[Rfam]
RNA sequence: AAGUAGUGUGACAUGCCCGUUUGGUGUUAAACUCUGAUUUAUUAUUUACUAUUUAAUUGUUUGGGAUAACGGGGUAUUACAAUUGG
Numbered sequence: 001a002a003g004u005a006g007u008g009u010g011a012c013a014u015g016c017c018c019g020u021u022u023g024g025u026g027u028u029a030a031a032c033u034c035u036g037a038u039u040u041a042u043u044a045u046u047u048a049c050u051a052u053u054u055a056a057u058u059g060u061u062u063g064g065g066a067u068a069a070c071g072g073g074g075u076a077u078u079a080c081a082a083u084u085g086g
Base pairs, nucleotide, nucleotide: 005083007081008080009079010078011077013075014074016073017072018071019070020069021068
RNA: MIR2617 microRNA precursor family
Organism: Medicago truncatula